[Rfam]
RNA sequence: GGCGGUGCUGGGGACCACCCUGUGUUUACUCUGUAUUUCGACCAGUGAACACAGCUGGUGGUAUCUCAGUUUCUUCC
Numbered sequence: 001g002g003c004g005g006u007g008c009u010g011g012g013g014a015c016c017a018c019c020c021u022g023u024g025u026u027u028a029c030u031c032u033g034u035a036u037u038u039c040g041a042c043c044a045g046u047g048a049a050c051a052c053a054g055c056u057g058g059u060g061g062u063a064u065c066u067c068a069g070u071u072u073c074u075u076c077c
Stems, first nucleotide, its partner, number of pairs: 004073002007070002011067001012065002014062002017059003020054003024050001026048002

mir-317 microRNA precursor family: a 77-nucleotide RNA sequence from Tribolium castaneum.